RNA: mir-1175 microRNA precursor family
Nucleotides: 072
Base pairs, nucleotide, nucleotide: 007066008065009064010062011061012060013059014058016056022049023048025047026046027045028044029043030042
Number, partner (000 for none) and nucleotide at each position: 001000u002000g003000a004000a005000c006000u007066a008065a009064g010062u011061g012060g013059a014058g015000a016056a017000g018000u019000g020000u021000c022049u023048c024000c025047u026046c027045a028044c029043u030042u031000u032000a033000a034000a035000a036000u037000u038000g039000a040000a041000c042030a043029a044028g045027u046026g047025a048023g049022a050000u051000u052000c053000a054000a055000c056016u057000c058014c059013u060012c061011c062010a063000u064009c065008u066007u067000a068000u069000u070000u071000c072000a